Group II catalytic intron D1-D4-6: a 273-nucleotide RNA from Roseimaritima multifibrata. A search with the family's covariance model found it, with a score of 66 bits.
RNA sequence: UGAAUCCCGCCUGGGUAAACCCUAGCCACGUGCCCAGUAUCGAGUGUUGCAGCGGCUGUAUAAGACCUUUGGUCGAAGUCGCCGCUUCCGCGUACACCAAAAGGUAGUGAGGAUGAAGCGAUCGUCGGUGACCCUGCGACGUUGAAUGGAUUUUGGAUUCGCCCCGAAAUUUGGUAACUGUGGGAUUCUGCCCAAGGUUUGUUCAUGCCUGAAGGCAACAUCUUCUGCAGCAUUAUUGGCAAGCUGCAAAGGAAGCCCCGGCGUCGGCGGCCC
Number, nucleotide and partner (000 for none) at each position: 001u000002g000003a000004a000005u000006c000007c000008c000009g000010c000011c000012u036013g035014g034015g033016u000017a000018a000019a031020c030021c000022c000023u242024a000025g240026c239027c000028a000029c000030g020031u019032g000033c015034c014035c013036a012037g000038u103039a000040u101041c000042g000043a000044g097045u096046g095047u094048u092049g091050c000051a086052g085053c084054g083055g082056c081057u000058g000059u000060a000061u000062a000063a000064g000065a000066c000067c000068u000069u000070u000071g000072g000073u000074c000075g000076a000077a000078g000079u000080c000081g056082c055083c054084g053085c052086u051087u000088c000089c000090g000091c049092g048093u000094a047095c046096a045097c044098c000099a000100a000101a040102a000103g038104g000105u000106a000107g000108u000109g000110a000111g000112g000113a000114u000115g000116a000117a000118g000119c000120g000121a000122u000123c000124g000125u000126c000127g000128g000129u000130g000131a000132c000133c000134c000135u000136g000137c000138g000139a000140c000141g000142u000143u000144g000145a000146a000147u000148g000149g000150a000151u000152u000153u000154u000155g000156g000157a000158u000159u267160c000161g264162c263163c000164c261165c260166g259167a000168a000169a000170u000171u000172u000173g000174g000175u000176a000177a000178c000179u000180g000181u000182g258183g257184g256185a000186u000187u000188c255189u254190g216191c215192c214193c000194a000195a210196g209197g208198u207199u000200u000201g000202u000203u000204c000205a000206u000207g198208c197209c196210u195211g000212a000213a000214g192215g191216c190217a000218a000219c000220a000221u253222c252223u251224u250225c000226u248227g247228c246229a245230g244231c243232a000233u000234u000235a000236u000237u000238g000239g026240c025241a000242a023243g231244c230245u229246g228247c227248a226249a000250a224251g223252g222253a221254a189255g188256c184257c183258c182259c166260g165261g164262c000263g162264u161265c000266g000267g159268c000269g000270g000271c000272c000273c000
Taxonomically the source falls in Roseimaritima (Bacteria, Pseudomonadati, Planctomycetia, Pirellulaceae).